[Rfam]
RNA sequence: CUCGGUGACCGGGCCCCUCUGGCAGGAAAAUCGGCGUUCCUGCGAUGUCGGCACUGCGA
Numbered sequence: 001c002u003c004g005g006u007g008a009c010c011g012g013g014c015c016c017c018u019c020u021g022g023c024a025g026g027a028a029a030a031u032c033g034g035c036g037u038u039c040c041u042g043c044g045a046u047g048u049c050g051g052c053a054c055u056g057c058g059a
Stems, first nucleotide, its partner, number of pairs: 006053002009051004022043007
This 59-nucleotide RNA from Gemmobacter aquaticus belongs to the Rfam family "terC RNA". Lineage of the source: Bacteria > Pseudomonadati > Pseudomonadota > Paracoccaceae > Gemmobacter.